[Rfam]
RNA sequence: CCUAUUGUUCUGUCAAUAGUAGUCUAAAGAGGCGUGCUUUACCAAGUCAUGGUUUAGUGCGAAGCCCUCUUGACAAUGCAGUCCUUUACAGAAAUAUCCAAUGUAUAGGCUGUUAGGCUGACUGAUAUGAGUAACAUAUGUGAAUCG
Numbered sequence: 001c002c003u004a005u006u007g008u009u010c011u012g013u014c015a016a017u018a019g020u021a022g023u024c025u026a027a028a029g030a031g032g033c034g035u036g037c038u039u040u041a042c043c044a045a046g047u048c049a050u051g052g053u054u055u056a057g058u059g060c061g062a063a064g065c066c067c068u069c070u071u072g073a074c075a076a077u078g079c080a081g082u083c084c085u086u087u088a089c090a091g092a093a094a095u096a097u098c099c100a101a102u103g104u105a106u107a108g109g110c111u112g113u114u115a116g117g118c119u120g121a122c123u124g125a126u127a128u129g130a131g132u133a134a135c136a137u138a139u140g141u142g143a144a145u146c147g
Stems, first nucleotide, its partner, number of pairs: 002019006028070005033061006041053004085107001087105004108119004126140004
RNA: Group II catalytic intron D1-D4-7